[Rfam]
RNA sequence: AAAUGAAGGCAGCAUGGUUAUGUGCACGGAGAUUGAAUCAGCAGAGUCGACAUGUCUGCUCCCUCUGAUACCCUUUUAAAGGGUUAAUGAUUUGGAGGCCUGGUUUUAGACUCACAUCU
Numbered sequence: 001a002a003a004u005g006a007a008g009g010c011a012g013c014a015u016g017g018u019u020a021u022g023u024g025c026a027c028g029g030a031g032a033u034u035g036a037a038u039c040a041g042c043a044g045a046g047u048c049g050a051c052a053u054g055u056c057u058g059c060u061c062c063c064u065c066u067g068a069u070a071c072c073c074u075u076u077u078a079a080a081g082g083g084u085u086a087a088u089g090a091u092u093u094g095g096a097g098g099c100c101u102g103g104u105u106u107u108a109g110a111c112u113c114a115c116a117u118c119u
Stems, first nucleotide, its partner, number of pairs: 012025004043101002046099003054091003058084003
RNA: Small nucleolar RNA snoR100
Organism: Solanum tuberosum